[Rfam]
RNA sequence: CCUCCGACAAACCCUGGUUUCCGUGUCCAACGUUUGACCGUCCAUCUUAUUUGUCACGCAUAAAAUAUUAAUCAUGUUUUAUCAUCUAACAACAAUGAAAAUACAAAUUAUAAAUAAAAUUUCAUAUAAGACAGACAGUCAAAGUUGGACACAGAAACCCAGAGUUUGCCUUUUU
Numbered sequence: 001c002c003u004c005c006g007a008c009a010a011a012c013c014c015u016g017g018u019u020u021c022c023g024u025g026u027c028c029a030a031c032g033u034u035u036g037a038c039c040g041u042c043c044a045u046c047u048u049a050u051u052u053g054u055c056a057c058g059c060a061u062a063a064a065a066u067a068u069u070a071a072u073c074a075u076g077u078u079u080u081a082u083c084a085u086c087u088a089a090c091a092a093c094a095a096u097g098a099a100a101a102u103a104c105a106a107a108u109u110a111u112a113a114a115u116a117a118a119a120u121u122u123c124a125u126a127u128a129a130g131a132c133a134g135a136c137a138g139u140c141a142a143a144g145u146u147g148g149a150c151a152c153a154g155a156a157a158c159c160c161a162g163a164g165u166u167u168g169c170c171u172u173u174u175u
Base pairs, nucleotide, nucleotide: 026149027148028147029146030145031144033143034142035141036140037139038138040136041135042134045131046130047129048128049127050126